Rfam assigns this 67-nucleotide RNA sequence from Peribacillus saganii to the family "Bacillaceae-1 RNA". It scores 73 bits against the family's covariance model. Lineage of the source: Bacteria > Bacilli > Caryophanales > Bacillaceae > Peribacillus.
[Rfam]
RNA sequence: AACGCAGGAAGGACAGCUAAUUGCGCCACGUCCUGUGGCAACGCUGUCCUGACCCACAUCCUGUGGC
Numbered sequence: 001a002a003c004g005c006a007g008g009a010a011g012g013a014c015a016g017c018u019a020a021u022u023g024c025g026c027c028a029c030g031u032c033c034u035g036u037g038g039c040a041a042c043g044c045u046g047u048c049c050u051g052a053c054c055c056a057c058a059u060c061c062u063g064u065g066g067c
Stems, first nucleotide, its partner, number of pairs: 011049007025039005054066004